Shown here is a 117-nucleotide RNA sequence from Frondihabitans sp. PAMC 28766, a member of the family "Actinobacteria sRNA Ms_IGR-7".
A reference for the family is Li et al. (2013), "Identification of small RNAs in Mycobacterium smegmatis using heterologous Hfq", RNA.
Rfam classes the family as a small RNA.
The pairing is the family consensus, mapped onto this sequence.
The family has 14 seed sequences and 463 matches in Rfam 15.1.
RNA sequence: CGAGAUGCCUUCCUUAUCGGGCGAAUAGGACUCUGAACAAGCUCUAUUUUCCCUGAUCAGAAAGGCAUUCUCCGUUUAACGCGCCGACCCCAACUAAACGUCCAUCGGUGGAUUCAG
Numbered sequence: 001c002g003a004g005a006u007g008c009c010u011u012c013c014u015u016a017u018c019g020g021g022c023g024a025a026u027a028g029g030a031c032u033c034u035g036a037a038c039a040a041g042c043u044c045u046a047u048u049u050u051c052c053c054u055g056a057u058c059a060g061a062a063a064g065g066c067a068u069u070c071u072c073c074g075u076u077u078a079a080c081g082c083g084c085c086g087a088c089c090c091c092a093a094c095u096a097a098a099c100g101u102c103c104a105u106c107g108g109u110g111g112a113u114u115c116a117g
Stems, first nucleotide, its partner, number of pairs: 002072003005068006011061002014059001016057001018055004023049004028044001031041002100113005